The record is a 72-nucleotide sequence from Candidatus Cryosericum terrychapinii, which matches "tRNA" in Rfam.
By type it is a transfer RNA.
A search with the family's covariance model found it, with a score of 69 bits.
The source organism's lineage runs through Bacteria, Candidatus Cryosericota, Candidatus Cryosericales, Candidatus Cryosericaceae and Candidatus Cryosericum.
The base pairs follow the family's consensus structure, which is taken from published work.
Rfam links the family to the GO term triplet codon-amino acid adaptor activity.
Transfer RNA (tRNA) molecules are approximately 80 nucleotides in length.
RNA sequence: GGGCGGAUGGCUCAGCGGUAGAGCACCUCCCUCACACGGAGGGGGUCGCAGGUUCGAACCCUGUUCCGCCCA
Number, nucleotide and partner (000 for none) at each position: 001g071002g070003g069004c068005g067006g066007a065008u000009g000010g024011c023012u022013c021014a000015g000016c000017g000018g000019u000020a000021g013022a012023g011024c010025a000026c042027c041028u040029c039030c038031c000032u000033c000034a000035c000036a000037c000038g030039g029040a028041g027042g026043g000044g000045g000046u000047c000048g064049c063050a062051g061052g060053u000054u000055c000056g000057a000058a000059c000060c052061c051062u050063g049064u048065u007066c006067c005068g004069c003070c002071c001072a000